[Rfam]
RNA sequence: ACCCCCGGUAUUAUUGAUGUUAUGGGUUGCGACCGAGCUUAGCCUUGUUCAUUUUUUUACACAACACCCCCGUAAAAAAUAAAAUACGGCUUUCAUGUUCCAGCUCUUCAACGACUAAAGCAGCCCUUGUCGACGCCCUCAAUUGCAGCAAAAUUGCCGCUAUGGUGCCUUUUUAGGGCAU
Numbered sequence: 001a002c003c004c005c006c007g008g009u010a011u012u013a014u015u016g017a018u019g020u021u022a023u024g025g026g027u028u029g030c031g032a033c034c035g036a037g038c039u040u041a042g043c044c045u046u047g048u049u050c051a052u053u054u055u056u057u058u059a060c061a062c063a064a065c066a067c068c069c070c071c072g073u074a075a076a077a078a079a080u081a082a083a084a085u086a087c088g089g090c091u092u093u094c095a096u097g098u099u100c101c102a103g104c105u106c107u108u109c110a111a112c113g114a115c116u117a118a119a120g121c122a123g124c125c126c127u128u129g130u131c132g133a134c135g136c137c138c139u140c141a142a143u144u145g146c147a148g149c150a151a152a153a154u155u156g157c158c159g160c161u162a163u164g165g166u167g168c169c170u171u172u173u174u175a176g177g178g179c180a181u
Stems, first nucleotide, its partner, number of pairs: 024106006035094001037092001042090003045086001047085003053079008165179002168176001
Shown here is a 181-nucleotide sequence from Pseudomonas japonica, a member of the family "Pseudomonas sRNA P1".
Rfam describes the family as follows. This small RNA (sRNA) was computationally identified in the genome of the opportunistic pathogen Pseudomonas aeruginosa and its expression verified by northern blot analysis. There appears to be two related copies of P1 sRNA in the P.aeruginosa PA01 genome and both copies appear to be located upstream of predicted glutamine synthetase genes. This sRNA appears to be conserved amongst several Pseudomonas species. P1 has a predicted Rho independent terminator at the 3' end but the function of P1 is unknown.
The family's consensus secondary structure was predicted with RNAalifold.